[Rfam]
RNA sequence: UGGUAACAAAUAAAAGCGCUUUCAAAGUGAGAGGAGAAUGGACCAAUGGGUACUAUAGUUUGCCAGACAUGCGAGUCAACAGUGGAACAUUUUGAAGGUGAAAAAGUUACAACGCUUUAUACGAAACAGUGUCCGAAUUGCAAAGAAGUCUCUGUUCAAGAAGUUUAGUAAUAAUAAGAAGAACUAAAAAAAUCCUCCGUGAUAUGCGGAGGAUUUUUUUAU
Numbered sequence: 001u002g003g004u005a006a007c008a009a010a011u012a013a014a015a016g017c018g019c020u021u022u023c024a025a026a027g028u029g030a031g032a033g034g035a036g037a038a039u040g041g042a043c044c045a046a047u048g049g050g051u052a053c054u055a056u057a058g059u060u061u062g063c064c065a066g067a068c069a070u071g072c073g074a075g076u077c078a079a080c081a082g083u084g085g086a087a088c089a090u091u092u093u094g095a096a097g098g099u100g101a102a103a104a105a106g107u108u109a110c111a112a113c114g115c116u117u118u119a120u121a122c123g124a125a126a127c128a129g130u131g132u133c134c135g136a137a138u139u140g141c142a143a144a145g146a147a148g149u150c151u152c153u154g155u156u157c158a159a160g161a162a163g164u165u166u167a168g169u170a171a172u173a174a175u176a177a178g179a180a181g182a183a184c185u186a187a188a189a190a191a192a193u194c195c196u197c198c199g200u201g202a203u204a205u206g207c208g209g210a211g212g213a214u215u216u217u218u219u220u221a222u
Base pairs, nucleotide, nucleotide: 016107017106020104021103022102025099028096031093032092033091034090036088047082049080051078054075059074060073133168135166136165137164138163139162186220187219188218189217190216191215192214193213194212195211196210197209198208
Shown here is a 222-nucleotide RNA sequence from Fictibacillus aquaticus, a member of the family "SR1 sRNA". The organism belongs to Fictibacillus, within Bacteria. Rfam links the family to the GO terms negative regulation of translational initiation and translation repressor activity, mRNA regulatory element binding. For this family Rfam cites "In vitro analysis of the interaction between the small RNA SR1 and its primary target ahrC mRNA" (Heidrich et al., Nucleic Acids Res, 2007). A search with the family's covariance model found it, with a score of 56 bits.